[Rfam]
RNA sequence: AAAAGAAAAAGGGAGCUCCCUUCAGUCCAAAUACAGGAAGCAUGAGAUUGAAUCUGUCUCCCGCAUCAUUCAGUCAUUUGAUGAGUAUUUAUUGAUUGGAUUACUAUACUCAACAUUUGGAUGAAUGAGUCAGCAGCUAAUUCAAUCUUACAACCACCCAUGAGUGGACCGAAGAAAGCUCUCUUUGCUUUAGCC
Dot-bracket structure: ............(((((..(..(.(((((......(.....................((.(.(...((((....(...........................................)....))))...).).)).....................)......))))).)..)..)))))..............
Numbered sequence: 001a002a003a004a005g006a007a008a009a010a011g012g013g014a015g016c017u018c019c020c021u022u023c024a025g026u027c028c029a030a031a032u033a034c035a036g037g038a039a040g041c042a043u044g045a046g047a048u049u050g051a052a053u054c055u056g057u058c059u060c061c062c063g064c065a066u067c068a069u070u071c072a073g074u075c076a077u078u079u080g081a082u083g084a085g086u087a088u089u090u091a092u093u094g095a096u097u098g099g100a101u102u103a104c105u106a107u108a109c110u111c112a113a114c115a116u117u118u119g120g121a122u123g124a125a126u127g128a129g130u131c132a133g134c135a136g137c138u139a140a141u142u143c144a145a146u147c148u149u150a151c152a153a154c155c156a157c158c159c160a161u162g163a164g165u166g167g168a169c170c171g172a173a174g175a176a177a178g179c180u181c182u183c184u185u186u187g188c189u190u191u192a193g194c195c
Stems, first nucleotide, its partner, number of pairs: 013181005020174001023171001025169005036158001058136002061133001063131001067127004075119001
Notes:
Shown here is a 195-nucleotide RNA from Cicer arietinum, a member of the family "MIR159 microRNA precursor family". A search with the family's covariance model found it, with a score of 82 bits. Taxonomically the source falls in Cicer (Eukaryota, Viridiplantae, Spermatophyta, eudicotyledons). On this family, see Jones-Rhoades and Bartel, Mol Cell 2004: "Computational identification of plant microRNAs and their targets, including a stress-induced miRNA". The family's consensus secondary structure was predicted with WAR.